[Rfam]
RNA sequence: CGUUUGUCACCUUGCAAUAAAUAACAGUGAACUCGGUCAGGCCCGGAAGGGAGCAGCCGCAGCUGUGAUUUUAUGUGUGAGGAACGGCUGGCGGGA
Numbered sequence: 001c002g003u004u005u006g007u008c009a010c011c012u013u014g015c016a017a018u019a020a021a022u023a024a025c026a027g028u029g030a031a032c033u034c035g036g037u038c039a040g041g042c043c044c045g046g047a048a049g050g051g052a053g054c055a056g057c058c059g060c061a062g063c064u065g066u067g068a069u070u071u072u073a074u075g076u077g078u079g080a081g082g083a084a085c086g087g088c089u090g091g092c093g094g095g096a
Base pairs, nucleotide, nucleotide: 004090006088007087008086010082011081012080013079014078015075017074018073019072020071021070024066025065026064027063028062034059035058036057037056042051043050044049

This 96-nucleotide sequence from Marinicella litoralis belongs to the Rfam family "Bacterial small signal recognition particle RNA". From the family's description: The signal recognition particle (SRP) is a universally conserved ribonucleoprotein involved in the co-translational targeting of proteins to membranes. Clan: SRP clan. The organism belongs to Marinicella, within Bacteria. By type it is a non-coding RNA gene. The match comes from Rfam's covariance-model search (68 bits).